[Rfam]
RNA sequence: GACUUAUGUAUAUGAUCUGAGAUUUCAGCAGACACCAGACCGUCAGGAUUGUUGAGGCUCCUAAUAUAAGUAAAGUG
Numbered sequence: 001g002a003c004u005u006a007u008g009u010a011u012a013u014g015a016u017c018u019g020a021g022a023u024u025u026c027a028g029c030a031g032a033c034a035c036c037a038g039a040c041c042g043u044c045a046g047g048a049u050u051g052u053u054g055a056g057g058c059u060c061c062u063a064a065u066a067u068a069a070g071u072a073a074a075g076u077g
Base pairs, nucleotide, nucleotide: 001076004073005072007070009068010067011066012065015062019060020059021058023057024056025055026054027053028052029051